[Rfam]
RNA sequence: UGGCACCCAACAUGGGGCCUGGCAUGGGGGACUCAACGAGGGAGCCAUUGGAGAGCCCGGGUAUGAAGCAGAAAGUGAAAGCAAAUUCCUAGGUCAAGGCCAAGAGAGUGCCUGCCCCGGCGCUCGAGCCACGUGAGUGAAUGGCAACCCCUUCUCCUUUCCGGCAUAGGUCAAACAUUAAAUGAGCAUGAGCUCUUUGUAGGAAGCCUUAGCAAGGCACUCAAGACAUGAGGGAUUAAAGUAAAGAAAAGGAUUUAUUACAGUAUUUUAAGUUUAUUCAUGAGGUUUACACGUG
Numbered sequence: 001u002g003g004c005a006c007c008c009a010a011c012a013u014g015g016g017g018c019c020u021g022g023c024a025u026g027g028g029g030g031a032c033u034c035a036a037c038g039a040g041g042g043a044g045c046c047a048u049u050g051g052a053g054a055g056c057c058c059g060g061g062u063a064u065g066a067a068g069c070a071g072a073a074a075g076u077g078a079a080a081g082c083a084a085a086u087u088c089c090u091a092g093g094u095c096a097a098g099g100c101c102a103a104g105a106g107a108g109u110g111c112c113u114g115c116c117c118c119g120g121c122g123c124u125c126g127a128g129c130c131a132c133g134u135g136a137g138u139g140a141a142u143g144g145c146a147a148c149c150c151c152u153u154c155u156c157c158u159u160u161c162c163g164g165c166a167u168a169g170g171u172c173a174a175a176c177a178u179u180a181a182a183u184g185a186g187c188a189u190g191a192g193c194u195c196u197u198u199g200u201a202g203g204a205a206g207c208c209u210u211a212g213c214a215a216g217g218c219a220c221u222c223a224a225g226a227c228a229u230g231a232g233g234g235a236u237u238a239a240a241g242u243a244a245a246g247a248a249a250a251g252g253a254u255u256u257a258u259u260a261c262a263g264u265a266u267u268u269u270a271a272g273u274u275u276a277u278u279c280a281u282g283a284g285g286u287u288u289a290c291a292c293g294u295g
Stems, first nucleotide, its partner, number of pairs: 006030003012025003035049002038046001088133001092130002098125001099123002104118001106116001140179004184222003229270005235264002239256004279295004284290001

Rfam assigns this 295-nucleotide sequence from Octodon degus to the family "Mason-Pfizer monkey virus packaging signal". It scores 59 bits against the family's covariance model. Rfam describes the family as follows. This family represents a group of sequences that are related to the Mason-Pfizer monkey virus (MPMV) packaging signal.